[Rfam]
The family of this 78-nucleotide sequence from Sus scrofa is "mir-194 microRNA precursor family".
RNA sequence: CGCCAUCAGCUGUAACAGCGACUCCAUGUGGACUGUGCCCCAAUUUCCAGUGGAGAUGCUGUUACCUUUGACGGCGAC
Numbered sequence: 001c002g003c004c005a006u007c008a009g010c011u012g013u014a015a016c017a018g019c020g021a022c023u024c025c026a027u028g029u030g031g032a033c034u035g036u037g038c039c040c041c042a043a044u045u046u047c048c049a050g051u052g053g054a055g056a057u058g059c060u061g062u063u064a065c066c067u068u069u070g071a072c073g074g075c076g077a078c
Stems, first nucleotide, its partner, number of pairs: 006071003012065008022055006029049003
The sequence is in the family's curated seed alignment. On this family, see Lagos-Quintana et al., RNA 2003: "New microRNAs from mouse and human". The base pairs follow the family's consensus structure, which was predicted with RNAalifold. Lineage of the source: Eukaryota > Vertebrata > Sarcopterygii > Laurasiatheria > Sus. Its family is annotated with miRNA-mediated post-transcriptional gene silencing and RISC complex in the Gene Ontology. Rfam 15.1 lists 936 matches to the family in 630 species.